[Rfam]
RNA: S15-Flavobacteria ribosomal protein leader
Organism: Flavobacterium sp. TAB 87
RNA sequence: UACUUUUGCAGCCGUCUAUCAACAAGUGAUACGACAUACAUAAUAAUCAUUAAAUAAUAUUGGAAUG
Numbered sequence: 001u002a003c004u005u006u007u008g009c010a011g012c013c014g015u016c017u018a019u020c021a022a023c024a025a026g027u028g029a030u031a032c033g034a035c036a037u038a039c040a041u042a043a044u045a046a047u048c049a050u051u052a053a054a055u056a057a058u059a060u061u062g063g064a065a066u067g
Stems, first nucleotide, its partner, number of pairs: 014035003017031003